[Rfam]
RNA sequence: GCUGCUUUAGGGUGGGAGGAGAGAGGUGUUACCUCAUCAGCUGCCUUCUCUCUCAUCCUCUCCUCCAGAAGCAGC
Numbered sequence: 001g002c003u004g005c006u007u008u009a010g011g012g013u014g015g016g017a018g019g020a021g022a023g024a025g026g027u028g029u030u031a032c033c034u035c036a037u038c039a040g041c042u043g044c045c046u047u048c049u050c051u052c053u054c055a056u057c058c059u060c061u062c063c064u065c066c067a068g069a070a071g072c073a074g075c
Stems, first nucleotide, its partner, number of pairs: 001075008010066001011063002014059004018054002021052006028045001030043002033040002
The record is a 75-nucleotide sequence from Psophia crepitans, which matches "mir-1759 microRNA precursor family" in Rfam.
Rfam 15.1 lists 319 matches to the family in 319 species.
The organism belongs to Psophia, within Eukaryota.